Shown here is a 105-nucleotide RNA sequence from Anaerosolibacter carboniphilus, a member of the family "PyrR binding site". Rfam classes the family as a cis-regulatory element. A search with the family's covariance model found it, with a score of 58 bits. A reference for the family is Bonner et al. (2001), "Molecular recognition of pyr mRNA by the Bacillus subtilis attenuation regulatory protein PyrR", Nucleic Acids Res. The base pairs follow the family's consensus structure, which is taken from published work. This family represents the PyrR binding site and terminator structure. This RNA structure is found upstream of a variety of genes involved in pyrimidine biosynthesis and transport. The alignment also includes a portion of the antiterminator structure.
RNA sequence: UAGCCCUUUAAAUUAACCCCGUGAGGUUAAAAAGGUUAUGGAAAGCAGUUAGAUCUAUUUCGAUUCAUCAUGCCUUUUUUCCUCAUGGAAAGAAGGCAUUUGUUU
Numbered sequence: 001u002a003g004c005c006c007u008u009u010a011a012a013u014u015a016a017c018c019c020c021g022u023g024a025g026g027u028u029a030a031a032a033a034g035g036u037u038a039u040g041g042a043a044a045g046c047a048g049u050u051a052g053a054u055c056u057a058u059u060u061c062g063a064u065u066c067a068u069c070a071u072g073c074c075u076u077u078u079u080u081c082c083u084c085a086u087g088g089a090a091a092g093a094a095g096g097c098a099u100u101u102g103u104u105u
Stems, first nucleotide, its partner, number of pairs: 003037001005035005013030006038068005045061001047059003051056001070099013